Overview:
A member of the RNA family "Small nucleolar RNA SNORA42/SNORA80 family" from Macaca nemestrina, 134 nucleotides long. It scores 121 bits against the family's covariance model. Rfam links the family to the GO terms nucleolus and RNA processing. On this family, see Schattner et al., RNA 2006: "A computational screen for mammalian pseudouridylation guide H/ACA RNAs". The members of this family belong to the H/ACA class of snoRNAs that guide the sites of modification of uridines to pseudouridines.
RNA sequence: GCCUGGGUUUGGAUUUAUAACAGGCCACAUCCCCUGGAUCUCAUAGUGCCCCAUGCCAGAGCAAACUGUGGCCCCGAACCAUUGCUUGGCCUCUGUACCCAUGGGCCACUGGCACUGAGGAGGGUUACCCAGUG
Numbered sequence: 001g002c003c004u005g006g007g008u009u010u011g012g013a014u015u016u017a018u019a020a021c022a023g024g025c026c027a028c029a030u031c032c033c034c035u036g037g038a039u040c041u042c043a044u045a046g047u048g049c050c051c052c053a054u055g056c057c058a059g060a061g062c063a064a065a066c067u068g069u070g071g072c073c074c075c076g077a078a079c080c081a082u083u084g085c086u087u088g089g090c091c092u093c094u095g096u097a098c099c100c101a102u103g104g105g106c107c108a109c110u111g112g113c114a115c116u117g118a119g120g121a122g123g124g125u126u127a128c129c130c131a132g133u134g
Base pairs, nucleotide, nucleotide: 001056002055004053005051006050007049008048015046016045017044018043022041023040024039025037026036069127070126071125072124073123074122080117081116085112086111087108088107089106090105091104092103
Dot-bracket structure: ((.(((((......((((...(((((.........)).))).)))).)))).).))............((((((.....((...((((((((..........))))))..))...))....)))))).......